[Rfam]
RNA sequence: CGGGGGAACGGCAGACCCCCCGCGAGACUUCGGUCCAAGCUCUGC
Numbered sequence: 001c002g003g004g005g006g007a008a009c010g011g012c013a014g015a016c017c018c019c020c021c022g023c024g025a026g027a028c029u030u031c032g033g034u035c036c037a038a039g040c041u042c043u044g045c
Stems, first nucleotide, its partner, number of pairs: 001022006011045005026035003
The record is a 45-nucleotide RNA from Bradyrhizobium ivorense, which matches "chrB-b RNA" in Rfam. The organism belongs to Bradyrhizobium, within Bacteria. The base pairs follow the family's consensus structure, which is taken from published work.